[Rfam]
RNA: SAM riboswitch aptamer (S box leader)
Organism: Desmospora activa
RNA sequence: UCGUUAUCCAGAGUGGUGGAGGGACUGGCCCGAUGAAGCCCGGCAACCGUCCGAUCCGGAAUCACAGAUUCCGGGAGGGAAAUGGUGCCAAUUCCUGCUGCGCCUGCGGGUGUGGAGAGAUAAGGA
Numbered sequence: 001u002c003g004u005u006a007u008c009c010a011g012a013g014u015g016g017u018g019g020a021g022g023g024a025c026u027g028g029c030c031c032g033a034u035g036a037a038g039c040c041c042g043g044c045a046a047c048c049g050u051c052c053g054a055u056c057c058g059g060a061a062u063c064a065c066a067g068a069u070u071c072c073g074g075g076a077g078g079g080a081a082a083u084g085g086u087g088c089c090a091a092u093u094c095c096u097g098c099u100g101c102g103c104c105u106g107c108g109g110g111u112g113u114g115g116a117g118a119g120a121u122a123a124g125g126a
Base pairs, nucleotide, nucleotide: 001126002125004123005122006121007120008119013041015040016039017038021031022030023029025097027095028094042089043088044087045086047085048084050080051079052078093118098115099114100113101112102111103110